[Rfam]
RNA sequence: GCCUCCUUAGCUCAGUUGGUAGAGCACUUCAUUCGUAAUGAAGGGGUCGUAGGUUCAAGUCCUAUAGGAGGCU
Numbered sequence: 001g002c003c004u005c006c007u008u009a010g011c012u013c014a015g016u017u018g019g020u021a022g023a024g025c026a027c028u029u030c031a032u033u034c035g036u037a038a039u040g041a042a043g044g045g046g047u048c049g050u051a052g053g054u055u056c057a058a059g060u061c062c063u064a065u066a067g068g069a070g071g072c073u
Stems, first nucleotide, its partner, number of pairs: 001072007010025004027043005049065005
RNA: tRNA